[Rfam]
RNA sequence: GUUGAGCAUAAUUGAUUUAUGUUUGGAUACACUAAUAUAAAAGUGAUUCUCAAUAUUUGAUGUUGUUUGGAUAA
Numbered sequence: 001g002u003u004g005a006g007c008a009u010a011a012u013u014g015a016u017u018u019a020u021g022u023u024u025g026g027a028u029a030c031a032c033u034a035a036u037a038u039a040a041a042a043g044u045g046a047u048u049c050u051c052a053a054u055a056u057u058u059g060a061u062g063u064u065g066u067u068u069g070g071a072u073a074a
Stems, first nucleotide, its partner, number of pairs: 011061005017055001022052001025049004030045004